[Rfam]
RNA sequence: AAUCAAAUUUGUUUCCGAGUCUUAGCACCUAAAGUGUUUGGCAAUGGGGCUUUGACCGUUAGGGUAUACAGGGAAACGUGUAUGCCUUCCAUCUUGAAAAGGGAAUGAAUUGCAAUAAAA
Numbered sequence: 001a002a003u004c005a006a007a008u009u010u011g012u013u014u015c016c017g018a019g020u021c022u023u024a025g026c027a028c029c030u031a032a033a034g035u036g037u038u039u040g041g042c043a044a045u046g047g048g049g050c051u052u053u054g055a056c057c058g059u060u061a062g063g064g065u066a067u068a069c070a071g072g073g074a075a076a077c078g079u080g081u082a083u084g085c086c087u088u089c090c091a092u093c094u095u096g097a098a099a100a101g102g103g104a105a106u107g108a109a110u111u112g113c114a115a116u117a118a119a120a
Base pairs, nucleotide, nucleotide: 003114006111011106012105013104014103015102016101019056020055021054024051025050026049028047029046034042035041062087063086064085065084066083067082068081069080070079072077088097089096